A member of the RNA family "mir-156 microRNA precursor family" from Helianthus annuus, 91 nucleotides long.
Rfam links the family to the GO terms RISC complex and miRNA-mediated post-transcriptional gene silencing.
This family represents the plant microRNA (miRNA) precursor mir-156.
RNA sequence: GUGACAGAAGAGAGUGAGCACUCAUGGUCUUCCUGCAAAUAGUUUAUUUUGAUAUGCAUGAAGCUAUGCGUGCUCACCCUCUAUCUGUCAU
Numbered sequence: 001g002u003g004a005c006a007g008a009a010g011a012g013a014g015u016g017a018g019c020a021c022u023c024a025u026g027g028u029c030u031u032c033c034u035g036c037a038a039a040u041a042g043u044u045u046a047u048u049u050u051g052a053u054a055u056g057c058a059u060g061a062a063g064c065u066a067u068g069c070g071u072g073c074u075c076a077c078c079c080u081c082u083a084u085c086u087g088u089c090a091u
Stems, first nucleotide, its partner, number of pairs: 001091008010081003014077008023068005
NCBI's taxonomy places the organism under Eukaryota, Gunneridae, campanulids, Heliantheae, Helianthus.